[Rfam]
RNA sequence: ACGUUAUCGGGAGCAGUGUCUCCCAUAAUGC
Numbered sequence: 001a002c003g004u005u006a007u008c009g010g011g012a013g014c015a016g017u018g019u020c021u022c023c024c025a026u027a028a029u030g031c
Stems, first nucleotide, its partner, number of pairs: 002030006009024005014018001

The family of this 31-nucleotide sequence from Gasterosteus aculeatus is "Iron response element II". Its family is annotated with response to iron ion in the Gene Ontology. From the family's description: IRE, TFRC, SLC40A1, SDHB, SLC11A2, CDC42BPA, ACO2, ALAS2_H.SAPIENS, CDC14A, EPAS1, ALAS2, qoxD, Hao1, NDUFS1, transferrin, Aconitate. The literature on the family includes a 1999 paper in J Biol Chem by Kohler et al., "Molecular cloning of mouse glycolate oxidase. High evolutionary conservation and presence of an iron-responsive element-like sequence in the mRNA". The source organism's lineage runs through Eukaryota, Bilateria, Chordata, Craniata and Gasterosteus.